[Rfam]
RNA sequence: UGUGGCUCCAUUGGGGCUAUAUCAGAAGUGUUCACAUUGUGGCCCCUGUUAGAUUCUCUGAAUCUGAGAAUCCAGCU
Dot-bracket structure: ............((((((..[.[.[.[(((.......)))))))))...(((((((...)))))))....].].].]
This 77-nucleotide RNA sequence from Chrysemys picta belongs to the Rfam family "Mammalian CPEB3 ribozyme". The base pairs follow the family's consensus structure, which is taken from published work. Rfam describes the family as follows. The mammalian CPEB3 ribozyme is a self cleaving RNA located in the second intron of the CPEB3 gene which belongs to a family of genes regulating messenger RNA polyadenylation. The organism belongs to Chrysemys picta, within Eukaryota. A search with the family's covariance model found it, with a score of 59 bits.